[Rfam]
RNA sequence: CGCAAGGGAGGAUUUUCCUCGGGUACUGACCAUACCCCGACCCCAGUCCGAUAGGUCAUGGAAUGACCCCAUGGUGCUGAGAGGGCAUCC
Numbered sequence: 001c002g003c004a005a006g007g008g009a010g011g012a013u014u015u016u017c018c019u020c021g022g023g024u025a026c027u028g029a030c031c032a033u034a035c036c037c038c039g040a041c042c043c044c045a046g047u048c049c050g051a052u053a054g055g056u057c058a059u060g061g062a063a064u065g066a067c068c069c070c071a072u073g074g075u076g077c078u079g080a081g082a083g084g085g086c087a088u089c090c
Stems, first nucleotide, its partner, number of pairs: 002047002006043002008020005021037005054068005073089006
Background
This 90-nucleotide sequence from Culex flavivirus belongs to the Rfam family "Insect-Specific Flavivirus 3' UTR repeats Ra and Rb elements". Clan: Insect-Specific Flavivirus 3' UTR repeats Ra and Rb elements. It is one of the family's seed sequences. NCBI's taxonomy places the organism under Viruses, Riboviria, Kitrinoviricota, Flasuviricetes, Orthoflavivirus. Rfam classes the family as a cis-regulatory element. 3' UTRs in insect specific flavivirus families present three to four repeats of conserved element Ra and Rb. On this family, see Ochsenreiter et al., Viruses 2019: "Functional RNA Structures in the 3'UTR of Tick-Borne, Insect-Specific and No-Known-Vector Flaviviruses".